Rfam assigns this 116-nucleotide RNA from Brachypodium distachyon to the family "MIR5070 microRNA precursor family".

RNA sequence: UAGGGUAUCCUUUGAUCCUACUUAGUUCAAACAAAUGAAUUAAAAUUUUAAAAUGACACAACUUUUUGAGAAAUUAGUUUAUUUGUUUGAACUAAGAAGAGUCAAAAGAUAGCCUG
Numbered sequence: 001u002a003g004g005g006u007a008u009c010c011u012u013u014g015a016u017c018c019u020a021c022u023u024a025g026u027u028c029a030a031a032c033a034a035a036u037g038a039a040u041u042a043a044a045a046u047u048u049u050a051a052a053a054u055g056a057c058a059c060a061a062c063u064u065u066u067u068g069a070g071a072a073a074u075u076a077g078u079u080u081a082u083u084u085g086u087u088u089g090a091a092c093u094a095a096g097a098a099g100a101g102u103c104a105a106a107a108g109a110u111a112g113c114c115u116g
Stems, first nucleotide, its partner, number of pairs: 002115003006111004011106006018099002021096023
The family is grouped with related families in Rfam's "MIR2863 microRNA precursor clan". The organism belongs to Brachypodium, within Eukaryota. The base pairs follow the family's consensus structure, which was predicted with RNAalifold. Gene Ontology terms of the family: RISC complex and miRNA-mediated post-transcriptional gene silencing.